[Rfam]
RNA: Small nucleolar RNA SNORA42/SNORA80 family
Organism: Mesocricetus auratus
RNA sequence: GCAUGAUUUUUGAUUUAUGGCAGGCAUGUCACCCUAGGUCUCUCAUAGUGUCCCACACCGGAGCAAACUGGCUCCUAAGCCUUGCCUGGCUUCUGUGCCUGUAGGCUGCUGGCACUGAAGUGGGUUACACUGUG
Numbered sequence: 001g002c003a004u005g006a007u008u009u010u011u012g013a014u015u016u017a018u019g020g021c022a023g024g025c026a027u028g029u030c031a032c033c034c035u036a037g038g039u040c041u042c043u044c045a046u047a048g049u050g051u052c053c054c055a056c057a058c059c060g061g062a063g064c065a066a067a068c069u070g071g072c073u074c075c076u077a078a079g080c081c082u083u084g085c086c087u088g089g090c091u092u093c094u095g096u097g098c099c100u101g102u103a104g105g106c107u108g109c110u111g112g113c114a115c116u117g118a119a120g121u122g123g124g125u126u127a128c129a130c131u132g133u134g
Stems, first nucleotide, its partner, number of pairs: 001058001004055001005053001008050001015048006022041003025037001069127006080117001085112002087108006